Plant signal recognition particle RNA: a 311-nucleotide RNA from Nicotiana sylvestris.
It is annotated as a non-coding RNA gene.
A search with the family's covariance model found it, with a score of 221 bits.
The literature on the family includes a 2002 paper in Curr Opin Struct Biol by Wild et al., "Towards the structure of the mammalian signal recognition particle".
The organism belongs to Nicotiana, within Eukaryota.

[Rfam]
RNA sequence: GCCGAGCCUUGUAGCGUGGGCUUGUGACCCAAGUGGGGGCAAAAAUGUGGUAGAAUGUUGGGUUGAUCCUGAAGGCUGGGCUUUUGGGUGGCUAAUGUCUGGCCUGCCCUAUCCAAGCAUGGAGUUGAGUCAUGUGGCCCAAAAGAAAGUAUGGGCUUCUUGGCUCCUAGAGUGGGGUGGACCGCGUGAGGCUGGUUUCACAGAGCAACGAACAGCUCUCGCUUCGUGCAGUGGAAAGAUAACAGGCCGGUGUUAUCCAAGUCCAACUAAACCUGAUGGGCUUCUCAAUUAAACCUAAACCACCACCAUUU
Dot-bracket structure: (((((((((........))))))....(((....))))))..(((((((((.(..((.(.((((((.((...(((.(((((((...(.(((.((....((((((((.(...((((.(((((((((.((((((.(.((((((.(......).)))))).).))))))(....).(((((......(((....(((......)))....)))....))))).)))))))))..))))..)....))))))))))))))..)))))).....).)))...)).....))))))..)..))..).))))).))))